RNA: mir-63 microRNA precursor family
RNA sequence: GGAAGAAUGUCAGUAACCAAACAGAUCUCAUCCCCAUUGACUCCCAUAGUAUUUAUUUUCUCUGCUAUGGCAGUAAAUGGGGGAUGAGAUCUGUUUGGUUACUGGCAUUCUUCC
Numbered sequence: 001g002g003a004a005g006a007a008u009g010u011c012a013g014u015a016a017c018c019a020a021a022c023a024g025a026u027c028u029c030a031u032c033c034c035c036a037u038u039g040a041c042u043c044c045c046a047u048a049g050u051a052u053u054u055a056u057u058u059u060c061u062c063u064g065c066u067a068u069g070g071c072a073g074u075a076a077a078u079g080g081g082g083g084a085u086g087a088g089a090u091c092u093g094u095u096u097g098g099u100u101a102c103u104g105g106c107a108u109u110c111u112u113c114c
Stems, first nucleotide, its partner, number of pairs: 001114013016099015031083007038075001040074003044070007